[Rfam]
The record is a 76-nucleotide RNA sequence from Felis catus, which matches "Small nucleolar RNA ZL2" in Rfam. Gene Ontology terms of the family: nucleolus and RNA processing. Rfam's curators put it in the seed alignment.
RNA sequence: GGCCUCGAGUGAUGGAGAAACGACCCUGGGAGGACAAUGACCAAAUCGGGAUGUAUUCGUACUGUCUGAUGGGGUC
Number, nucleotide and partner (000 for none) at each position: 001g076002g075003c074004c073005u072006c071007g070008a000009g000010u000011g066012a065013u064014g063015g062016a000017g000018a000019a060020a057021c000022g000023a054024c053025c050026c049027u000028g047029g046030g000031a000032g000033g042034a000035c000036a000037a000038u000039g000040a000041c000042c033043a000044a000045a000046u029047c028048g000049g026050g025051a000052u000053g024054u023055a000056u000057u020058c000059g000060u019061a000062c015063u014064g013065u012066c011067u000068g000069a000070u007071g006072g005073g004074g003075u002076c001